[Rfam]
RNA: Bacterial large signal recognition particle RNA
Organism: Lachnospira eligens
Nucleotides: 263
Base pairs, nucleotide, nucleotide: 001263002262003261004260005259006258008056009055010054011029012028013027014026015025018022033053034052035051036050037049061256062255063254064253065252066251070247071246072245073244074243076241077240078239079238080237081236082235083234084233085232090226093224094223095222096221097220098219101217102216103214104213105212112208113207114206115205116204117203118202119201120197121196122195123194124193125192126188129186130185131184132183133182135178136177137176138175139174145170146169147168148167153162154161155160
Number, partner (000 for none) and nucleotide at each position: 001263c002262c003261g004260u005259g006258c007000a008056g009055c010054c011029g012028g013027g014026g015025u016000a017000g018022u019000a020000g021000c022018g023000g024000c025015a026014c027013c028012u029011u030000g031000a032000a033053c034052c035051u036050g037049c038000a039000a040000u041000c042000c043000g044000c045000u046000a047000u048000a049037g050036c051035a052034g053033g054010g055009g056008u057000g058000a059000u060000g061256u062255u063254c064253g065252g066251c067000a068000g069000a070247g071246g072245g073244c074243u075000g076241a077240u078239a079238u080237u081236u082235a083234u084233g085232g086000a087000g088000c089000a090226g091000c092000c093224c094223g095222g096221u097220g098219u099000a100000a101217g102216u103214g104213g105212u106000g107000u108000u109000g110000a111000c112208a113207u114206u115205u116204g117203g118202g119201u120197c121196u122195u123194u124193c125192a126188c127000g128000a129186c130185g131184g132183a133182a134000a135178u136177c137176c138175a139174c140000g141000a142000a143000c144000c145170a146169u147168g148167u149000c150000a151000g152000g153162u154161c155160a156000g157000g158000a159000a160155u161154g162153a163000a164000g165000c166000a167148g168147c169146a170145u171000u172000a173000a174139g175138u176137g177136g178135a179000a180000u181000c182133u183132u184131c185130c186129g187000g188126g189000u190000g191000u192125u193124g194123a195122a196121a197120g198000g199000g200000u201119g202118c203117c204116u205115g206114g207113a208112u209000c210000g211000a212105g213104c214103u215000a216102a217101c218000u219098g220097c221096a222095u223094c224093g225000g226090u227000a228000a229000c230000g231000u232085c233084u234083g235082u236081g237080g238079a239078u240077a241076u242000c243074a244073g245072u246071u247070c248000g249000a250000a251066g252065c253064c254063g255062g256061a257000c258006g259005c260004a261003c262002g263001g